[Rfam]
RNA sequence: AGGAUUCCUACAGGAGCGACCUGAAAUCACAUGUGGCGGCACCCUCCUGGGUUAUCUCAGGCUACAUGUGUUCUCAGGUCGCCCCUGCCGGGCUUUC
Numbered sequence: 001a002g003g004a005u006u007c008c009u010a011c012a013g014g015a016g017c018g019a020c021c022u023g024a025a026a027u028c029a030c031a032u033g034u035g036g037c038g039g040c041a042c043c044c045u046c047c048u049g050g051g052u053u054a055u056c057u058c059a060g061g062c063u064a065c066a067u068g069u070g071u072u073c074u075c076a077g078g079u080c081g082c083c084c085c086u087g088c089c090g091g092g093c094u095u096u097c
Stems, first nucleotide, its partner, number of pairs: 007091002011087004016082004023075002026072001028070005